mir-970 microRNA precursor family: a 73-nucleotide RNA from Aedes aegypti. Rfam links the family to the GO terms miRNA-mediated post-transcriptional gene silencing and RISC complex. Rfam's curators put it in the seed alignment.
RNA sequence: CAUAGGUAGCUUGCGUUUGUCUUAGCUGGUAUUGAAUGUGAUAGGUAUCAUAAGACACACGCGGCUAUUUUUG
Numbered sequence: 001c002a003u004a005g006g007u008a009g010c011u012u013g014c015g016u017u018u019g020u021c022u023u024a025g026c027u028g029g030u031a032u033u034g035a036a037u038g039u040g041a042u043a044g045g046u047a048u049c050a051u052a053a054g055a056c057a058c059a060c061g062c063g064g065c066u067a068u069u070u071u072u073g
Base pairs, nucleotide, nucleotide: 001073002072004070005069006068008066009065010064011063013062014061015060018057019056022054023053027050028049029048030047031046